Shown here is a 178-nucleotide RNA sequence from Clostridium sp. JN-9, a member of the family "Lysine riboswitch aptamer". The family has 47 seed sequences and 3,224 matches in Rfam 15.1. A search with the family's covariance model found it, with a score of 82 bits. The source organism's lineage runs through Bacteria, Bacillati, Eubacteriales, Clostridiaceae and Clostridium. The family's consensus secondary structure is taken from published work.
RNA sequence: UACAUAAAUAGAGGUGCAGAUAUACGUGUAAUCUUUAAAUGGAAAGGAGAAGAACCUCCAAUGUUAAAGAUAAAUGAUAUAUUUGCCGAAAGGAUAUAAUGGUUCUUAAUUAUAUUCUUGGGAGUAAAGCAUACAGUUUUAAUCCUGCCAUAAACUUUUGUGGAGAGCUAUUUAUGUA
Numbered sequence: 001u002a003c004a005u006a007a008a009u010a011g012a013g014g015u016g017c018a019g020a021u022a023u024a025c026g027u028g029u030a031a032u033c034u035u036u037a038a039a040u041g042g043a044a045a046g047g048a049g050a051a052g053a054a055c056c057u058c059c060a061a062u063g064u065u066a067a068a069g070a071u072a073a074a075u076g077a078u079a080u081a082u083u084u085g086c087c088g089a090a091a092g093g094a095u096a097u098a099a100u101g102g103u104u105c106u107u108a109a110u111u112a113u114a115u116u117c118u119u120g121g122g123a124g125u126a127a128a129g130c131a132u133a134c135a136g137u138u139u140u141a142a143u144c145c146u147g148c149c150a151u152a153a154a155c156u157u158u159u160g161u162g163g164a165g166a167g168c169u170a171u172u173u174a175u176g177u178a
Stems, first nucleotide, its partner, number of pairs: 006173006016086009031071008090119011120146004125141006148163006